[Rfam]
Small nucleolar RNA SNORD121A: an 81-nucleotide sequence from Rousettus aegyptiacus. Rfam classes the family as a C/D-box small nucleolar RNA. Its family is annotated with nucleolus and RNA processing in the Gene Ontology. The base pairs follow the family's consensus structure, which was predicted with WAR. A reference for the family is Yang et al. (2006), "snoSeeker: an advanced computational package for screening of guide and orphan snoRNA genes in the human genome", Nucleic Acids Res.

RNA sequence: CAGGAAAAGACAAUGAUGCUUUAUUUCCAAGCACAUAUCUGAUUUGUAUGUGUGGAUAGCAAUAAAACUGAGUCUUUUCUG
Numbered sequence: 001c002a003g004g005a006a007a008a009g010a011c012a013a014u015g016a017u018g019c020u021u022u023a024u025u026u027c028c029a030a031g032c033a034c035a036u037a038u039c040u041g042a043u044u045u046g047u048a049u050g051u052g053u054g055g056a057u058a059g060c061a062a063u064a065a066a067a068c069u070g071a072g073u074c075u076u077u078u079c080u081g
Base pairs, nucleotide, nucleotide: 001081002080003079005078006077008075009074010073011072